[Rfam]
RNA sequence: UUAUUUUGUGAAACUAGUAUUCUUCUGUCCCUUUCGGCAGAGCGAAUAAAUAUCGGAGAAACGAAUGGCUCGUAUUGCAGGUGUUAAUAUACCGGAU
Numbered sequence: 001u002u003a004u005u006u007u008g009u010g011a012a013a014c015u016a017g018u019a020u021u022c023u024u025c026u027g028u029c030c031c032u033u034u035c036g037g038c039a040g041a042g043c044g045a046a047u048a049a050a051u052a053u054c055g056g057a058g059a060a061a062c063g064a065a066u067g068g069c070u071c072g073u074a075u076u077g078c079a080g081g082u083g084u085u086a087a088u089a090u091a092c093c094g095g096a097u
Stems, first nucleotide, its partner, number of pairs: 001045002004042006021081003026072002034096002

Rfam assigns this 97-nucleotide RNA from Legionella oakridgensis to the family "Alpha operon ribosome binding site". Taxonomically the source falls in Legionella oakridgensis (Bacteria, Pseudomonadati, Gammaproteobacteria, Legionella). The family's consensus secondary structure is taken from published work. From the family's description: The bacterial alpha operon ribosome binding site is surrounded by this complex pseudoknotted structure. The literature on the family includes a 2001 paper in J Biol Chem by Schlax et al., "Translational repression of the Escherichia coli alpha operon mRNA: importance of an mRNA conformational switch and a ternary entrapment complex".